[Rfam]
RNA sequence: AUAUAUGUUUUCUAGGGUUCCGUAGCAUCCUGCUAGACUGGUCCAAGGGAAAACGCACAGAUGAACUGUGUAACACGGAAGGGGAAAAGCCUGGGAGAU
Numbered sequence: 001a002u003a004u005a006u007g008u009u010u011u012c013u014a015g016g017g018u019u020c021c022g023u024a025g026c027a028u029c030c031u032g033c034u035a036g037a038c039u040g041g042u043c044c045a046a047g048g049g050a051a052a053a054c055g056c057a058c059a060g061a062u063g064a065a066c067u068g069u070g071u072a073a074c075a076c077g078g079a080a081g082g083g084g085a086a087a088a089g090c091c092u093g094g095g096a097g098a099u
Stems, first nucleotide, its partner, number of pairs: 007054006015044002020041002022038001023035005055071006074094001076097001080092003
Shown here is a 99-nucleotide RNA from Bacillus sp. FJAT-49736, a member of the family "Guanidine-I riboswitch aptamer". About the family: This family represents a conserved RNA structure found upstream of the ykkC and yxkD genes in Bacillus subtilis and related genes in other bacteria. The function of this family is unclear although it has been suggested that it may function to switch on efflux pumps and detoxification systems in response to harmful environmental molecules. The pairing is the family consensus, mapped onto this sequence. Lineage of the source: Bacteria > Bacillota > Caryophanales > Bacillaceae > Bacillus.